[Rfam]
Background:
The family of this 158-nucleotide sequence from Priestia taiwanensis is "FMN riboswitch aptamer (RFN element)". A search with the family's covariance model found it, with a score of 115 bits. Lineage of the source: Bacteria > Bacillota > Bacilli > Bacillaceae > Priestia.
RNA sequence: CAUAUCCUUCGGGGUCGGGUGCAAUUCCCAACCGGCGGUGAUGAAGCGUAAUGACUUCUAAGCCCGUGACCCGUUUAUCAAAGAAAAGUAGUCCGAUAGGCGGUGGAUUUGGUGAGAAACCAAAGCCGACAGUAUAGUCUGGAUGGGAGAAGGAUAAU
Numbered sequence: 001c002a003u004a005u006c007c008u009u010c011g012g013g014g015u016c017g018g019g020u021g022c023a024a025u026u027c028c029c030a031a032c033c034g035g036c037g038g039u040g041a042u043g044a045a046g047c048g049u050a051a052u053g054a055c056u057u058c059u060a061a062g063c064c065c066g067u068g069a070c071c072c073g074u075u076u077a078u079c080a081a082a083g084a085a086a087a088g089u090a091g092u093c094c095g096a097u098a099g100g101c102g103g104u105g106g107a108u109u110u111g112g113u114g115a116g117a118a119a120c121c122a123a124a125g126c127c128g129a130c131a132g133u134a135u136a137g138u139c140u141g142g143a144u145g146g147g148a149g150a151a152g153g154a155u156a157a158u
Stems, first nucleotide, its partner, number of pairs: 003156008017029003031138002033128002035067004062126002071103008108124005130141003